[Rfam]
RNA sequence: CCCAAUAGAAUCGGCUCUCUCAAGGGUGGUCGGCUCACUCUCUUUUUGCCCUAGAUAAGGGAAAGGGGUUGAGAAUAUGACAGUAUAUGAAGCAAUUUCAUUAAUGAUCGCAUUUGGAUUAUUAAUUGUUGCUAUACUGACAUCCGAUAAAAAGAAAUGACCUCCCUUGAGCCUGGAAACUGAGGGGAGUGUCUAAUCUUCAGUCGAUAUGUGAGCCGACCCUUUGAGGUGAAAGUCUCUUGUACACAUACCGUAAGAUGUUCACGCAUCUUGCG
Numbered sequence: 001c002c003c004a005a006u007a008g009a010a011u012c013g014g015c016u017c018u019c020u021c022a023a024g025g026g027u028g029g030u031c032g033g034c035u036c037a038c039u040c041u042c043u044u045u046u047u048g049c050c051c052u053a054g055a056u057a058a059g060g061g062a063a064a065g066g067g068g069u070u071g072a073g074a075a076u077a078u079g080a081c082a083g084u085a086u087a088u089g090a091a092g093c094a095a096u097u098u099c100a101u102u103a104a105u106g107a108u109c110g111c112a113u114u115u116g117g118a119u120u121a122u123u124a125a126u127u128g129u130u131g132c133u134a135u136a137c138u139g140a141c142a143u144c145c146g147a148u149a150a151a152a153a154g155a156a157a158u159g160a161c162c163u164c165c166c167u168u169g170a171g172c173c174u175g176g177a178a179a180c181u182g183a184g185g186g187g188a189g190u191g192u193c194u195a196a197u198c199u200u201c202a203g204u205c206g207a208u209a210u211g212u213g214a215g216c217c218g219a220c221c222c223u224u225u226g227a228g229g230u231g232a233a234a235g236u237c238u239c240u241u242g243u244a245c246a247c248a249u250a251c252c253g254u255a256a257g258a259u260g261u262u263c264a265c266g267c268a269u270c271u272u273g274c275g
Base pairs, nucleotide, nucleotide: 003242004241005240007238008237009236011234012218013217014216015215016214017213019171020170021169022168023167024166025165026164028162029161030160031159035072036071037070039068040067041066042065043064044063045062046061047060079141081139082138083137084136085135093106094105116133117132182200183199221231252275253274254273255272256271257270258269259268260267261266
RNA: BsrG